[Rfam]
RNA sequence: CUGCACUGAUGAGCGUUUGUAGGAUCUGAUCUGGUAUUGCUUCCCUCCGGGGAGAGCUCUGACCAGGAAAUGAUCCCGGUUCAAUCUUCUCUCUGAGCGG
Numbered sequence: 001c002u003g004c005a006c007u008g009a010u011g012a013g014c015g016u017u018u019g020u021a022g023g024a025u026c027u028g029a030u031c032u033g034g035u036a037u038u039g040c041u042u043c044c045c046u047c048c049g050g051g052g053a054g055a056g057c058u059c060u061g062a063c064c065a066g067g068a069a070a071u072g073a074u075c076c077c078g079g080u081u082c083a084a085u086c087u088u089c090u091c092u093c094u095g096a097g098c099g100g
Stems, first nucleotide, its partner, number of pairs: 001099001003098002039057004
Dot-bracket structure: (.((..................................((((...........)))).......................................))).
Notes
Rfam assigns this 100-nucleotide RNA from Nothobranchius furzeri to the family "Z30 small nucleolar RNA". It is annotated as a C/D-box small nucleolar RNA.